[Rfam]
RNA sequence: UCGUUUUUUCAUAGAUUUUCUCGUAUAUGUGCAGGGAUCGGCCUGCAUGUCUCUACCUGAUCACCGGAAAUGAUCGGACUACGGGAGAAGGGCUCUAUACC
Numbered sequence: 001u002c003g004u005u006u007u008u009u010c011a012u013a014g015a016u017u018u019u020c021u022c023g024u025a026u027a028u029g030u031g032c033a034g035g036g037a038u039c040g041g042c043c044u045g046c047a048u049g050u051c052u053c054u055a056c057c058u059g060a061u062c063a064c065c066g067g068a069a070a071u072g073a074u075c076g077g078a079c080u081a082c083g084g085g086a087g088a089a090g091g092g093c094u095c096u097a098u099a100c101c
Base pairs, nucleotide, nucleotide: 018087019086020085021084022083023082024081025080029048030047031046032045033044034043035042057077058076059075060074061073062072063071
Dot-bracket structure: .................((((((((...(((((((......)))))))........(((((((.......)))))))..))))))))..............
Purine riboswitch aptamer: a 101-nucleotide RNA from Paenibacillus lutimineralis.
The family's consensus secondary structure is taken from published work.